[Rfam]
The family of this 84-nucleotide sequence from Callorhinchus milii is "mir-301 microRNA precursor family". Rfam 15.1 lists 1,415 matches to the family in 640 species. Pairs were carried over by alignment from the consensus structure, which was predicted with WAR. Taxonomically the source falls in Callorhinchus (Eukaryota, Chordata, Craniata, Chondrichthyes).
RNA sequence: UGUUGUCGGAGGCUCUGACGAUAUUGCACUACUGUCCUCACCGUUAAGCAGUGCAAUAGUAUUGUCAAAGCGUCAGGCAACAGA
Numbered sequence: 001u002g003u004u005g006u007c008g009g010a011g012g013c014u015c016u017g018a019c020g021a022u023a024u025u026g027c028a029c030u031a032c033u034g035u036c037c038u039c040a041c042c043g044u045u046a047a048g049c050a051g052u053g054c055a056a057u058a059g060u061a062u063u064g065u066c067a068a069a070g071c072g073u074c075a076g077g078c079a080a081c082a083g084a
Base pairs, nucleotide, nucleotide: 002081003080004079007076009074010073012071013070014069016067017066018065019064023057024056025055026054027053028052029051030050034042